[Rfam]
RNA sequence: AUCUGAAACUGACACUCAAGCCCUGGCACCUGUGUCGCAAGAUAUGGUGCCCUGGCCGUGGCGAUGCGUCGCCACCAGGGUGCAGAAAGAAAUGCCUGCAUCUCCCGUAUUUGGAAAGGUGUACAUGGUCUCUCAAC
Numbered sequence: 001a002u003c004u005g006a007a008a009c010u011g012a013c014a015c016u017c018a019a020g021c022c023c024u025g026g027c028a029c030c031u032g033u034g035u036c037g038c039a040a041g042a043u044a045u046g047g048u049g050c051c052c053u054g055g056c057c058g059u060g061g062c063g064a065u066g067c068g069u070c071g072c073c074a075c076c077a078g079g080g081u082g083c084a085g086a087a088a089g090a091a092a093u094g095c096c097u098g099c100a101u102c103u104c105c106c107g108u109a110u111u112u113g114g115a116a117a118g119g120u121g122u123a124c125a126u127g128g129u130c131u132c133u134c135a136a137c
Stems, first nucleotide, its partner, number of pairs: 012122004017118001020056003025051006034043003058075005078103008088093001104114002
Overview: Molybdenum/Tungsten riboswitch aptamer (Moco RNA motif): a 137-nucleotide RNA from Mangrovibacter sp. MFB070. Its family is annotated with regulation of gene expression, tungstate binding and molybdenum ion binding in the Gene Ontology. Taxonomically the source falls in Mangrovibacter (Bacteria, Pseudomonadota, Gammaproteobacteria, Enterobacterales).